[Rfam]
RNA sequence: CCGUUCUGCCCUCCUUGGGCGUUUCCUCCCUAGACUUCGACCGCGUCGUGAAAACGAUGCGGUCUUUUUUUCGCCGAC
Numbered sequence: 001c002c003g004u005u006c007u008g009c010c011c012u013c014c015u016u017g018g019g020c021g022u023u024u025c026c027u028c029c030c031u032a033g034a035c036u037u038c039g040a041c042c043g044c045g046u047c048g049u050g051a052a053a054a055c056g057a058u059g060c061g062g063u064c065u066u067u068u069u070u071u072c073g074c075c076g077a078c
Stems, first nucleotide, its partner, number of pairs: 008020004039064009
RNA: Makes More Granules Regulator RNA (mmgR)